[Rfam]
RNA sequence: CGGUUGAAUUUGAGAAUUGGAUGGAACCAAAUCUUGUUUGCGAAAGCGAGGCAAGACUUGGUUUCCUCCAAUCUCAUGUUCAGCUG
Numbered sequence: 001c002g003g004u005u006g007a008a009u010u011u012g013a014g015a016a017u018u019g020g021a022u023g024g025a026a027c028c029a030a031a032u033c034u035u036g037u038u039u040g041c042g043a044a045a046g047c048g049a050g051g052c053a054a055g056a057c058u059u060g061g062u063u064u065c066c067u068c069c070a071a072u073c074u075c076a077u078g079u080u081c082a083g084c085u086g
Base pairs, nucleotide, nucleotide: 004083005082006081007080008079011076012075013074014073016072017071018070019069020068021067023065024064025063026062027061028060029059030058032056033055